[Rfam]
RNA sequence: UUAAAUGUGUUAAAAAUAGUUUUCUGGAAGCCAAUUGCUUUCUGCAUAACAAACCAUUACAAAUAUUCAUAGAAUUUGAGCAUU
Numbered sequence: 001u002u003a004a005a006u007g008u009g010u011u012a013a014a015a016a017u018a019g020u021u022u023u024c025u026g027g028a029a030g031c032c033a034a035u036u037g038c039u040u041u042c043u044g045c046a047u048a049a050c051a052a053a054c055c056a057u058u059a060c061a062a063a064u065a066u067u068c069a070u071a072g073a074a075u076u077u078g079a080g081c082a083u084u
Stems, first nucleotide, its partner, number of pairs: 003084002006082002
RNA: Small nucleolar RNA snoR8a